RNA sequence: GGUGUGUGCUCCAGCAGGGGGGCUACAGAAUGACUCCUCUGUUUAUACACACUCCUGUUCAAUAACAGGAAUCUGAGAUCAUUGUGAUGAGGGGCAUAAAAACUGUGUCCCUAUGAACAAAUUCCCUACCUGG
Numbered sequence: 001g002g003u004g005u006g007u008g009c010u011c012c013a014g015c016a017g018g019g020g021g022g023c024u025a026c027a028g029a030a031u032g033a034c035u036c037c038u039c040u041g042u043u044u045a046u047a048c049a050c051a052c053u054c055c056u057g058u059u060c061a062a063u064a065a066c067a068g069g070a071a072u073c074u075g076a077g078a079u080c081a082u083u084g085u086g087a088u089g090a091g092g093g094g095c096a097u098a099a100a101a102a103c104u105g106u107g108u109c110c111c112u113a114u115g116a117a118c119a120a121a122u123u124c125c126c127u128a129c130c131u132g133g
Stems, first nucleotide, its partner, number of pairs: 002054001004052005013043008021034001023032001077125001083119003088115002091111003095107004
RNA: Small nucleolar RNA SNORA11